The record is an 86-nucleotide RNA sequence from Solanum commersonii, which matches "MIR8024 microRNA precursor family" in Rfam. The organism belongs to Solanum, within Eukaryota. Gene Ontology terms of the family: RISC complex and miRNA-mediated post-transcriptional gene silencing.

[Rfam]
RNA sequence: UUGACUAAUUUGAAGACUUUAACUUGUAGAGUUUUAAGAUUUGAACACUUUAACUUGUAUACUUGGAGAAUUUAAAGACUUCAACU
Number, nucleotide and partner (000 for none) at each position: 001u084002u083003g082004a081005c000006u000007a000008a000009u076010u075011u074012g073013a072014a071015g000016a000017c068018u067019u066020u065021a064022a000023c000024u000025u059026g058027u057028a056029g000030a000031g000032u053033u052034u000035u000036a049037a000038g000039a000040u000041u000042u000043g000044a000045a000046c000047a000048c000049u036050u000051u000052a033053a032054c000055u000056u028057g027058u026059a025060u000061a000062c000063u000064u021065g020066g019067a018068g017069a000070a000071u014072u013073u012074a011075a010076a009077g000078a000079c000080u000081u004082c003083a002084a001085c000086u000